[Rfam]
RNA sequence: AUUUUAAUAUAAGUAUGCCCUAUGCAAUAUUUGGGGCAUACUUACGCUAAGA
Dot-bracket structure: .....(.(.(((.(((.(((((........).)))).))).))).).)....

Rfam assigns this 52-nucleotide RNA from Myotis myotis to the family "mir-1302 microRNA precursor family". The source organism's lineage runs through Eukaryota, Chordata, Euteleostomi, Yangochiroptera and Myotis. On this family, see Morin et al., Genome Res 2008: "Application of massively parallel sequencing to microRNA profiling and discovery in human embryonic stem cells". It scores 62 bits against the family's covariance model.